[Rfam]
RNA sequence: GCCCUCCCCAACGCUGCGUUUCCAUGCUACAAACAGAGAGACAUCCCUGCGAUGCCUCUCACUCUACUCUACGCAUGUGGGAAAUUCGGAGUAAGCCUCAACCUCACCGAUCUCUGGCCGCGUGCCUAGAAUCAUCGGUCUGCCGGUAACGGCCUGGCGUCAAUGCACGUCUGCAAAUGAUAUCAGAAAUCUCAGAGCGCGUGCUUUUUUAGUUGCGCUGUCUCUAUGGGAAGUCUUUGCGAGGCUUGUUUUGGGAGAAACUGAAGUGCGAUACGCGGCGUCUUGUUCCUUUUGGGAACUGGAUGACUCAAUUCCGAUCACUCUGGGGAGGGC
Dot-bracket structure: ((((...(((..(((((((...((((.........(((((...............))))).............)))).........[[[[[....((((..........................................((((....))))..(((((......))))).(((((.(..............(((..........................)))........).)))))))))............................)))))))((((.(((((.....))))).)))).......]]]]].......)))...))))
Numbered sequence: 001g002c003c004c005u006c007c008c009c010a011a012c013g014c015u016g017c018g019u020u021u022c023c024a025u026g027c028u029a030c031a032a033a034c035a036g037a038g039a040g041a042c043a044u045c046c047c048u049g050c051g052a053u054g055c056c057u058c059u060c061a062c063u064c065u066a067c068u069c070u071a072c073g074c075a076u077g078u079g080g081g082a083a084a085u086u087c088g089g090a091g092u093a094a095g096c097c098u099c100a101a102c103c104u105c106a107c108c109g110a111u112c113u114c115u116g117g118c119c120g121c122g123u124g125c126c127u128a129g130a131a132u133c134a135u136c137g138g139u140c141u142g143c144c145g146g147u148a149a150c151g152g153c154c155u156g157g158c159g160u161c162a163a164u165g166c167a168c169g170u171c172u173g174c175a176a177a178u179g180a181u182a183u184c185a186g187a188a189a190u191c192u193c194a195g196a197g198c199g200c201g202u203g204c205u206u207u208u209u210u211a212g213u214u215g216c217g218c219u220g221u222c223u224c225u226a227u228g229g230g231a232a233g234u235c236u237u238u239g240c241g242a243g244g245c246u247u248g249u250u251u252u253g254g255g256a257g258a259a260a261c262u263g264a265a266g267u268g269c270g271a272u273a274c275g276c277g278g279c280g281u282c283u284u285g286u287u288c289c290u291u292u293u294g295g296g297a298a299c300u301g302g303a304u305g306a307c308u309c310a311a312u313u314c315c316g317a318u319c320a321c322u323c324u325g326g327g328g329a330g331g332g333c
Stems, first nucleotide, its partner, number of pairs: 001333004008326003013279007023077004036060005087316005096244004142153004156171005173240005179234001194225003280304004285299005
This 333-nucleotide sequence from Fusarium austroafricanum belongs to the Rfam family "Nuclear RNase P". Ribonuclease P (RNase P) is a ubiquitous endoribonuclease, found in archaea, bacteria and eukarya as well as chloroplasts and mitochondria. Its best characterised activity is the generation of mature 5'-ends of tRNAs by cleaving the 5'-leader elements of precursor-tRNAs. Cellular RNase Ps are ribonucleoproteins. RNA from bacterial RNase Ps retains its catalytic activity in the absence of the protein subunit, i.e. it is a ribozyme. Isolated eukaryotic and archaeal RNase P RNA has not been shown to retain its catalytic function, but is still essential for the catalytic activity of the holoenzyme. Although the archaeal and eukaryotic holoenzyme s have a much greater protein content than the bacterial ones, the RNA cores from all the three lineages are homologous -- helices corresponding to P1, P2, P3, P4, and P10/11 are common to all cellular RNase P RNAs. Yet, there is considerable sequence variation, particularly among the eukaryotic RNAs. It scores 71 bits against the family's covariance model. It is annotated as a ribozyme. Rfam 15.1 lists 3,848 matches to the family in 1,862 species.